[Rfam]
RNA sequence: UGACAGCGGGGGAUUCCUGGAGAUGGGAUUUUAUUUUGGCAGCCAAUAAAUCACAUUGCCAGGGAUUUCCAACUGUCG
Dot-bracket structure: ((.(((....((((((((((.((((.(((((................))))).)))).))))))))..))..))).))
Numbered sequence: 001u002g003a004c005a006g007c008g009g010g011g012g013a014u015u016c017c018u019g020g021a022g023a024u025g026g027g028a029u030u031u032u033a034u035u036u037u038g039g040c041a042g043c044c045a046a047u048a049a050a051u052c053a054c055a056u057u058g059c060c061a062g063g064g065a066u067u068u069c070c071a072a073c074u075g076u077c078g
Stems, first nucleotide, its partner, number of pairs: 001078002004075003011070002013066008022057004027052005

This 78-nucleotide RNA sequence from Xenopus tropicalis belongs to the Rfam family "mir-23 microRNA precursor family". Gene Ontology terms of the family: gene silencing by miRNA and RISC complex. The base pairs follow the family's consensus structure, which was predicted with PFOLD. NCBI's taxonomy places the organism under Eukaryota, Gnathostomata, Teleostomi, Xenopodinae, Silurana.